The family of this 171-nucleotide sequence from Callosobruchus maculatus is "R2 RNA element". By type it is a cis-regulatory element. The source organism's lineage runs through Eukaryota, Mandibulata, Polyphaga, Bruchini and Callosobruchus. It scores 47 bits against the family's covariance model. Rfam describes the family as follows. This family represents the 3' UTR region of the R2 retrotransposable element. This family is known to interact with the R2-encoded reverse transcriptase in a reaction known as target primed reverse transcription (TPRT).
RNA sequence: AAAUUUCCAGUUCGUGUGUUACACACCCUUAGAUGGCAAAACUUCACAGUUGAACCUCUCACGGGGGGGAGUUUUAGUUGGUAUGCGCCAGCAGGCUUAUCCUGCUGGUGAAUCCAACACUAUCCGCAUUUCCUUCGCGGGCGUCUUUACGAAGAUUUCUCCUCCUCAGUC
Numbered sequence: 001a002a003a004u005u006u007c008c009a010g011u012u013c014g015u016g017u018g019u020u021a022c023a024c025a026c027c028c029u030u031a032g033a034u035g036g037c038a039a040a041a042c043u044u045c046a047c048a049g050u051u052g053a054a055c056c057u058c059u060c061a062c063g064g065g066g067g068g069g070a071g072u073u074u075u076a077g078u079u080g081g082u083a084u085g086c087g088c089c090a091g092c093a094g095g096c097u098u099a100u101c102c103u104g105c106u107g108g109u110g111a112a113u114c115c116a117a118c119a120c121u122a123u124c125c126g127c128a129u130u131u132c133c134u135u136c137g138c139g140g141g142c143g144u145c146u147u148u149a150c151g152a153a154g155a156u157u158u159c160u161c162c163u164c165c166u167c168a169g170u171c
Stems, first nucleotide, its partner, number of pairs: 046170002064167004069161003077118005086110010120143001123141004